[Rfam]
RNA: DUF2800 RNA
RNA sequence: UACCCCUCCACGGCAUCACCCGAUCACUGAUGAGCUCAAACGUGGCUGGUGGACAAGUUAAUAGCGUAGCUGCCUUUUGAGCGGGUUAGCUGCAAUCCGAAACGGAGAAAUCCGUGAAGGACUGCGGUCGGUCUUUUGCACCCAUUUUGCGGCUACUUC
Dot-bracket structure: ((.((..(((((.(((((.........))))).[[[[[[.)))))..))))...............(((((((...]]]]]]......(((((........(((((....)))))........)))))....................)))))))....
Numbered sequence: 001u002a003c004c005c006c007u008c009c010a011c012g013g014c015a016u017c018a019c020c021c022g023a024u025c026a027c028u029g030a031u032g033a034g035c036u037c038a039a040a041c042g043u044g045g046c047u048g049g050u051g052g053a054c055a056a057g058u059u060a061a062u063a064g065c066g067u068a069g070c071u072g073c074c075u076u077u078u079g080a081g082c083g084g085g086u087u088a089g090c091u092g093c094a095a096u097c098c099g100a101a102a103c104g105g106a107g108a109a110a111u112c113c114g115u116g117a118a119g120g121a122c123u124g125c126g127g128u129c130g131g132u133c134u135u136u137u138g139c140a141c142c143c144a145u146u147u148u149g150c151g152g153c154u155a156c157u158u159c
Stems, first nucleotide, its partner, number of pairs: 001051002004049002008045005014032005034082006067155007089128005102115005